[Rfam]
RNA sequence: CCAGUCGGCUGGAUGGCCGCUCCCACUAGCGCCGAAAGGCCGUGGGGGAGGAAAGUCCGGACUCCAUGGAGAAACGGUGCCGGAUAACAUCCGGCGAGGGCGACCUUAGGGAAAGUGCCACAGAAAGCAAACCGCCUUCACAUGUGGGGGUAAGGGUGAAAGGGUGGGGUAAGAGCCCACCGCGCGGCUGGCAACAGUCGUGGCAUGGUAAACCCCACCGGGAGCAAAACCGAAUAGGGGCGGCGCGGAGGCUUCGGCUUCCAGUCUUUCUCCAGACCAGACCGCCCGGGUUGGUUGCUUGAGGCGUUCAGCAAUGGGCGUCCCAGAUGAAUGGCCGUCACGUGCGGGAAACCGCGCCAUACAAAAUCCGGCUUACAGGCCGACUGGUAUC
Numbered sequence: 001c002c003a004g005u006c007g008g009c010u011g012g013a014u015g016g017c018c019g020c021u022c023c024c025a026c027u028a029g030c031g032c033c034g035a036a037a038g039g040c041c042g043u044g045g046g047g048g049a050g051g052a053a054a055g056u057c058c059g060g061a062c063u064c065c066a067u068g069g070a071g072a073a074a075c076g077g078u079g080c081c082g083g084a085u086a087a088c089a090u091c092c093g094g095c096g097a098g099g100g101c102g103a104c105c106u107u108a109g110g111g112a113a114a115g116u117g118c119c120a121c122a123g124a125a126a127g128c129a130a131a132c133c134g135c136c137u138u139c140a141c142a143u144g145u146g147g148g149g150g151u152a153a154g155g156g157u158g159a160a161a162g163g164g165u166g167g168g169g170u171a172a173g174a175g176c177c178c179a180c181c182g183c184g185c186g187g188c189u190g191g192c193a194a195c196a197g198u199c200g201u202g203g204c205a206u207g208g209u210a211a212a213c214c215c216c217a218c219c220g221g222g223a224g225c226a227a228a229a230c231c232g233a234a235u236a237g238g239g240g241c242g243g244c245g246c247g248g249a250g251g252c253u254u255c256g257g258c259u260u261c262c263a264g265u266c267u268u269u270c271u272c273c274a275g276a277c278c279a280g281a282c283c284g285c286c287c288g289g290g291u292u293g294g295u296u297g298c299u300u301g302a303g304g305c306g307u308u309c310a311g312c313a314a315u316g317g318g319c320g321u322c323c324c325a326g327a328u329g330a331a332u333g334g335c336c337g338u339c340a341c342g343u344g345c346g347g348g349a350a351a352c353c354g355c356g357c358c359a360u361a362c363a364a365a366a367u368c369c370g371g372c373u374u375a376c377a378g379g380c381c382g383a384c385u386g387g388u389a390u391c
Base pairs, nucleotide, nucleotide: 001387002386003385004384005383006382007381008380009379010378011376012339013338014337015336016335017334018333020048021047022046023045024044025043026042053374054373055372057371058370059369060368061367062224063223064222065221071271073269075220076219077218078217079216080094081093082092083091084090095109096107097106098105099104110215111214115213116212117209118208119207132155133154134151135150136149137148138147139146140145163181164180165179166178167177168176182204183202184201185200186199187198188197189196190195228296229295230294231293238287239286240285241284242283243282264277265276266275267274303322304321305320306319307318308317309316310315
Dot-bracket structure: ((((((((((((((((((.(((((((...............)))))))....[[[.[[[[[((((.....[.[.((((((((((.....)))))(((((....)))).)((...(((((............(((((((((....)))))))..)).......((((((.......))))))(((((((((....)))))))).)..)))..)))))))))))))...((((......((((((....................((((.].]..))))....)))))).....))))......((((((((....))))))))..........)))))))...........................]]]]]]]].).))))))))))....